This 111-nucleotide sequence from Flavobacteria bacterium BBFL7 belongs to the Rfam family "6S-Flavo RNA". The family's consensus secondary structure is taken from published work. Lineage of the source: Bacteria > Pseudomonadati > Bacteroidota > Flavobacteriia. Rfam classes the family as a small RNA.
[Rfam]
RNA sequence: ACUCAACACAUAAUUCUUUAAAAAAGGUGAGUCGUGGUUGUAAAAGCAAGCCGGACCUAGGAGCCGGAUCCUUGAUCAAUCAGUUAACCUUAAACUUUAUUUAAGGAGUUC
Numbered sequence: 001a002c003u004c005a006a007c008a009c010a011u012a013a014u015u016c017u018u019u020a021a022a023a024a025a026g027g028u029g030a031g032u033c034g035u036g037g038u039u040g041u042a043a044a045a046g047c048a049a050g051c052c053g054g055a056c057c058u059a060g061g062a063g064c065c066g067g068a069u070c071c072u073u074g075a076u077c078a079a080u081c082a083g084u085u086a087a088c089c090u091u092a093a094a095c096u097u098u099a100u101u102u103a104a105g106g107a108g109u110u111c
Stems, first nucleotide, its partner, number of pairs: 024091005035082005044073003051067004